[Rfam]
RNA sequence: GUGCAACAUUAAGCGCCAGAGCUUCAUUUCGCGCGUAGAAGUCAUUCAUCCCAUUAAAGUUUAAUGACGUAUCAAUGGGUGAUGGCUGACGGCAAAUGCAAGCUGACGAGGUGGAGGUGUUCGAAUUGUUCGGCGGGGGCCUCCCGGUGAAGCAUCACAUCGUAACCAUAAGGGCAAAAGGAAUGGGCGACCGUUCCCACAAACCUUUUGGACUGAUGCCA
Numbered sequence: 001g002u003g004c005a006a007c008a009u010u011a012a013g014c015g016c017c018a019g020a021g022c023u024u025c026a027u028u029u030c031g032c033g034c035g036u037a038g039a040a041g042u043c044a045u046u047c048a049u050c051c052c053a054u055u056a057a058a059g060u061u062u063a064a065u066g067a068c069g070u071a072u073c074a075a076u077g078g079g080u081g082a083u084g085g086c087u088g089a090c091g092g093c094a095a096a097u098g099c100a101a102g103c104u105g106a107c108g109a110g111g112u113g114g115a116g117g118u119g120u121u122c123g124a125a126u127u128g129u130u131c132g133g134c135g136g137g138g139g140c141c142u143c144c145c146g147g148u149g150a151a152g153c154a155u156c157a158c159a160u161c162g163u164a165a166c167c168a169u170a171a172g173g174g175c176a177a178a179a180g181g182a183a184u185g186g187g188c189g190a191c192c193g194u195u196c197c198c199a200c201a202a203a204c205c206u207u208u209u210g211g212a213c214u215g216a217u218g219c220c221a
Base pairs, nucleotide, nucleotide: 020104021103022102023101024100025098026097027096029094113144114143115142116141117140121133122132123131124130145162146161147160148159149158166211167210168209170207171206172205180197181196182195183194184193185192186191
This 221-nucleotide RNA from Fontibacillus panacisegetis belongs to the Rfam family "glmS glucosamine-6-phosphate activated ribozyme aptamer". From the family's description: This entry contains a glucosamine-6-phosphate activated ribozyme that is found in the mRNA for GlmS. GlmS is an enzyme that uses fructose-6-phosphate and glutamine to generate glucosamine-6-phosphate. The ribozyme catalyses self cleavage of the glmS mRNA that is thought to regulate GlmS activity. It is annotated as a riboswitch. Taxonomically the source falls in Fontibacillus (Bacteria, Bacillati, Bacilli, Caryophanales).